[Rfam]
RNA sequence: AAGAAUAUAUAUCUCCGAGCUGGGGAGUCUAAGGCGAAGCUAUGAUUCACCAAGCCUGUAGGUGUAGACUGGAAACGGAUACGCCUUCCCGUAUUGUGAAAAGGAGUUAGUAUCAACUGU
Numbered sequence: 001a002a003g004a005a006u007a008u009a010u011a012u013c014u015c016c017g018a019g020c021u022g023g024g025g026a027g028u029c030u031a032a033g034g035c036g037a038a039g040c041u042a043u044g045a046u047u048c049a050c051c052a053a054g055c056c057u058g059u060a061g062g063u064g065u066a067g068a069c070u071g072g073a074a075a076c077g078g079a080u081a082c083g084c085c086u087u088c089c090c091g092u093a094u095u096g097u098g099a100a101a102a103g104g105a106g107u108u109a110g111u112a113u114c115a116a117c118u119g120u
Stems, first nucleotide, its partner, number of pairs: 011108001013106004019055003022051002025048005033041003060086007069078003087099002